[Rfam]
Nucleotides: 142
Base pairs, nucleotide, nucleotide: 011127012126013125014124018028019027020026029122030121031120032119033118034117039059040058060107061106062105068082069081070080071079085101086100087099088098
Number, partner (000 for none) and nucleotide at each position: 001000a002000c003000c004000u005000u006000u007000u008000a009000a010000u011127c012126g013125c014124u015000g016000a017000a018028u019027c020026g021000u022000u023000u024000u025000u026020c027019g028018a029122g030121c031120g032119g033118g034117g035000g036000a037000a038000c039059c040058g041000g042000u043000a044000c045000c046000g047000g048000c049000a050000u051000u052000u053000u054000g055000c056000c057000u058040u059039g060107g061106g062105g063000u064000g065000a066000a067000u068082c069081u070080u071079a072000c073000a074000g075000c076000a077000u078000g079071u080070a081069a082068g083000a084000a085101g086100g087099g088098a089000u090000a091000c092000u093000c094000u095000c096000a097000g098088u099087c100086c101085c102000u103000a104000a105062u106061c107060c108000g109000a110000c111000a112000g113000c114000u115000a116000a117034c118033c119032u120031c121030g122029u123000a124014a125013g126012c127011g128000u129000u130000u131000a132000c133000c134000a135000g136000u137000a138000c139000a140000a141000a142000c

Source information:
Rfam assigns this 142-nucleotide RNA sequence from Planococcus lenghuensis to the family "c-di-AMP riboswitch aptamer (ydaO/yuaA leader)". This family represents a conserved RNA structure found upstream of the ydaO and yuaA genes in Bacillus subtilis and related genes in other bacteria. The ydaO/yuaA element is thought to act as a genetic 'off' switch for the ydaO and yuaA genes in its native state. It is believed that the element may be triggered during osmotic shock leading to activation of ydaO, a predicted amino acid transporter gene, and members of the yuaA-yubG operon which code for KtrA and KtrB K+ transporters. The base pairs follow the family's consensus structure. It scores 98 bits against the family's covariance model.